Rfam assigns this 149-nucleotide RNA from Geopseudomonas guangdongensis to the family "PrrF RNA".
It is annotated as a small RNA.
The organism belongs to Geopseudomonas, within Bacteria.
Rfam 15.1 lists 107 matches to the family in 85 species.
Rfam links the family to the GO term sRNA-mediated gene silencing.
Rfam's curators write: PrrF RNA is a small RNA involved in iron homeostasis and is found exclusively in Pseudomonas species.
Pairs were carried over by alignment from the consensus structure, which is taken from published work.

[Rfam]
RNA sequence: UUGACUCUCAAAUGAAAACACUUAUCAUCAACUCAACUGAUCGCGAGAUCGGUCGAUAGACGAAAGGCCCUGGCAGACUGGCUUUUCGGUUAUCUCCUCAUCAGGCUAAUCACGGUUUCGACCCGGCUCCCCCGCCGGGUCUUUUUUUG
Numbered sequence: 001u002u003g004a005c006u007c008u009c010a011a012a013u014g015a016a017a018a019c020a021c022u023u024a025u026c027a028u029c030a031a032c033u034c035a036a037c038u039g040a041u042c043g044c045g046a047g048a049u050c051g052g053u054c055g056a057u058a059g060a061c062g063a064a065a066g067g068c069c070c071u072g073g074c075a076g077a078c079u080g081g082c083u084u085u086u087c088g089g090u091u092a093u094c095u096c097c098u099c100a101u102c103a104g105g106c107u108a109a110u111c112a113c114g115g116u117u118u119c120g121a122c123c124c125g126g127c128u129c130c131c132c133c134g135c136c137g138g139g140u141c142u143u144u145u146u147u148u149g
Stems, first nucleotide, its partner, number of pairs: 034055001036053007061088007096105003120141008